[Rfam]
RNA: ASpks TB sRNA
RNA sequence: CUUGAUCGAGCCCAGCCACAGGGGCUGCUCCGUGGAGUGCUCCUGGCCGUACGUGGCCAGCAGCGCCUGCGCCUC
Numbered sequence: 001c002u003u004g005a006u007c008g009a010g011c012c013c014a015g016c017c018a019c020a021g022g023g024g025c026u027g028c029u030c031c032g033u034g035g036a037g038u039g040c041u042c043c044u045g046g047c048c049g050u051a052c053g054u055g056g057c058c059a060g061c062a063g064c065g066c067c068u069g070c071g072c073c074u075c
Stems, first nucleotide, its partner, number of pairs: 014026004031071003038065002043060003047056003